[Rfam]
RNA sequence: CUGCCCGGUUGGUGAUUGAGACGACAGGGCUGGGCGGCGAUACCCCUACUGGUUGUCAGCGGUGGAACAGGGGACACAUGGGCGGCGAAGCCAGCACCCAUCCGCGAAGAGGCUGGCGAGU
Numbered sequence: 001c002u003g004c005c006c007g008g009u010u011g012g013u014g015a016u017u018g019a020g021a022c023g024a025c026a027g028g029g030c031u032g033g034g035c036g037g038c039g040a041u042a043c044c045c046c047u048a049c050u051g052g053u054u055g056u057c058a059g060c061g062g063u064g065g066a067a068c069a070g071g072g073g074a075c076a077c078a079u080g081g082g083c084g085g086c087g088a089a090g091c092c093a094g095c096a097c098c099c100a101u102c103c104g105c106g107a108a109g110a111g112g113c114u115g116g117c118g119a120g121u
Base pairs, nucleotide, nucleotide: 001037002036003035004034005033006032007031008030009029010028025051026050027049043073044072045071046070047069059105060104061103062102078101079100080099081098082097090117091116092115093114094113095112

Overview
This 121-nucleotide RNA sequence belongs to the Rfam family "Betaproteobacteria-1 RNA". It is annotated as a small RNA.